[Rfam]
RNA sequence: AUAAUACCUCGUUAGGUGAGGCUCCUGUGCUGGAGAUACGCUGCUGCCCAAAAAUGUCCAAAGACGCCAAUGGGUCAACAAGAACUAUCGACAUAAGGUGGUUUUUAACGUAGCUGGAUUCGUCCUAUGCCGCACAGUGCUAAAGCUCUACGAAUGGAGGAGUAUA
Numbered sequence: 001a002u003a004a005u006a007c008c009u010c011g012u013u014a015g016g017u018g019a020g021g022c023u024c025c026u027g028u029g030c031u032g033g034a035g036a037u038a039c040g041c042u043g044c045u046g047c048c049c050a051a052a053a054a055u056g057u058c059c060a061a062a063g064a065c066g067c068c069a070a071u072g073g074g075u076c077a078a079c080a081a082g083a084a085c086u087a088u089c090g091a092c093a094u095a096a097g098g099u100g101g102u103u104u105u106u107a108a109c110g111u112a113g114c115u116g117g118a119u120u121c122g123u124c125c126u127a128u129g130c131c132g133c134a135c136a137g138u139g140c141u142a143a144a145g146c147u148c149u150a151c152g153a154a155u156g157g158a159g160g161a162g163u164a165u166a
Stems, first nucleotide, its partner, number of pairs: 005162001007160004011151002013096001015147003020141003025137006032131002040114005046075005055066004081105004087099003116125003
RNA: M-box riboswitch aptamer (ykoK leader)
Organism: Halalkalibacter akibai